[Rfam]
Shown here is a 54-nucleotide RNA sequence from Halalkalibacter krulwichiae, a member of the family "Streptococcus sRNA SpF59 (ldcC RNA)".
The family's RNA type in Rfam is small RNA.
The source organism's lineage runs through Bacteria, Bacilli, Caryophanales, Bacillaceae and Halalkalibacter.
The base pairs follow the family's consensus structure, which was predicted with mfold.
A search with the family's covariance model found it, with a score of 66 bits.

RNA sequence: UGACCACUUACGAUUGUAAGUCAAAGCCAUACGGACAGCUGGGUCAAAUGCCGC
Number, nucleotide and partner (000 for none) at each position: 001u046002g045003a044004c043005c042006a021007c020008u019009u018010a017011c016012g000013a000014u000015u000016g011017u010018a009019a008020g007021u006022c000023a000024a000025a000026g000027c000028c000029a000030u000031a000032c000033g000034g000035a000036c000037a000038g000039c000040u000041g000042g005043g004044u003045c002046a001047a000048a000049u000050g000051c000052c000053g000054c000